Rfam assigns this 70-nucleotide RNA from Dysgonomonas sp. HDW5A to the family "Bacteroidetes FopS (family of paralogous sRNAs)". The base pairs follow the family's consensus structure, which is taken from published work. Rfam links the family to the GO term sRNA-mediated gene silencing. The RNA-binding protein RbpB and BTncRNA_FopS sRNA are involved in the post-transcription regulation of polysaccharide utilisation loci (PUL). FopS sRNAs function as post-transcriptional repressors by binding to the vicinity of the start codon of the first mRNA of target PUL polycistrons, typically corresponding to the cognate SusC homolog, impeding translation of the respective glycan transporter. The source organism's lineage runs through Bacteria, Bacteroidota, Bacteroidia, Bacteroidales and Dysgonomonas. A search with the family's covariance model found it, with a score of 79 bits. By type it is a small RNA.
RNA sequence: GUGUUUUUCAUAGUAUUAGAUUUAAGGUUAAUGGAGAUUGGUUGUCGGGAUGACAACCAAUUCUUUUUUU
Numbered sequence: 001g002u003g004u005u006u007u008u009c010a011u012a013g014u015a016u017u018a019g020a021u022u023u024a025a026g027g028u029u030a031a032u033g034g035a036g037a038u039u040g041g042u043u044g045u046c047g048g049g050a051u052g053a054c055a056a057c058c059a060a061u062u063c064u065u066u067u068u069u070u
Base pairs, nucleotide, nucleotide: 040058041057042056043055044054045053046052